[Rfam]
This 48-nucleotide RNA sequence from Roseicyclus elongatus belongs to the Rfam family "Guanidine-II riboswitch aptamer (mini-ykkC)". The match comes from Rfam's covariance-model search (34 bits).
RNA sequence: CCGUCGGGACGACCCGGCCAUGAGAGGGUAACAGUCAGGACGACCUGC
Numbered sequence: 001c002c003g004u005c006g007g008g009a010c011g012a013c014c015c016g017g018c019c020a021u022g023a024g025a026g027g028g029u030a031a032c033a034g035u036c037a038g039g040a041c042g043a044c045c046u047g048c
Stems, first nucleotide, its partner, number of pairs: 003018006036047004
Rfam 15.1 lists 1,589 matches to the family in 1,229 species. Rfam's curators write: Simpler in structure and has fewer highly conserved nucleotide positions than the ykkC-yxkD leader.